Mammalian CPEB3 ribozyme: a 74-nucleotide RNA from Alligator sinensis. Its family is annotated with RNA nuclease activity in the Gene Ontology.

RNA sequence: GGUUGCAAGUUUGAGGCCAUAGCAAAAGUGCUGGCAUGGCCCCAUCAGAUUCCAAUGAAUCUGCAGAUUCUGCU
Numbered sequence: 001g002g003u004u005g006c007a008a009g010u011u012u013g014a015g016g017c018c019a020u021a022g023c024a025a026a027a028g029u030g031c032u033g034g035c036a037u038g039g040c041c042c043c044a045u046c047a048g049a050u051u052c053c054a055a056u057g058a059a060u061c062u063g064c065a066g067a068u069u070c071u072g073c074u
Stems, first nucleotide, its partner, number of pairs: 013043001015041004021074004026069002028037003046063007
Dot-bracket structure: ............(.((((..[[[[.[[(((....))))))).)..(((((((....)))))))....]].]]]]

It scores 40 bits against the family's covariance model. The family has 14 seed sequences and 5,706 matches in Rfam 15.1.